The record is a 67-nucleotide RNA sequence from Monodelphis domestica, which matches "mir-150 microRNA precursor family" in Rfam. For this family Rfam cites "Conservation of small RNA pathways in platypus" (Murchison et al., Genome Res, 2008). The sequence is in the family's curated seed alignment.
[Rfam]
RNA sequence: UCUCCCAACCCUUGUACCAGAGUCCAUCAGAGACCCGGUACGGGCUGUGGGGGACGGGGAGUCGGGG
Numbered sequence: 001u002c003u004c005c006c007a008a009c010c011c012u013u014g015u016a017c018c019a020g021a022g023u024c025c026a027u028c029a030g031a032g033a034c035c036c037g038g039u040a041c042g043g044g045c046u047g048u049g050g051g052g053g054a055c056g057g058g059g060a061g062u063c064g065g066g067g
Stems, first nucleotide, its partner, number of pairs: 001054002003051003009044002013042006